[Rfam]
RNA: xerDC RNA
RNA sequence: GAUCCGUCGCCGGGCGGAUCACAGGACACCGGCGGAGCCUUCCGCAGCCGAGUUCAGCGGCCGGGUGUCCGCCACCGCUCCCUUGGAGCAGGGUGUAUUCACCCCAUGUGGCAGCGUACUGACC
Numbered sequence: 001g002a003u004c005c006g007u008c009g010c011c012g013g014g015c016g017g018a019u020c021a022c023a024g025g026a027c028a029c030c031g032g033c034g035g036a037g038c039c040u041u042c043c044g045c046a047g048c049c050g051a052g053u054u055c056a057g058c059g060g061c062c063g064g065g066u067g068u069c070c071g072c073c074a075c076c077g078c079u080c081c082c083u084u085g086g087a088g089c090a091g092g093g094u095g096u097a098u099u100c101a102c103c104c105c106a107u108g109u110g111g112c113a114g115c116g117u118a119c120u121g122a123c124c
Stems, first nucleotide, its partner, number of pairs: 001020008024070006030063002032045005047061004071112005077089005091104001093102003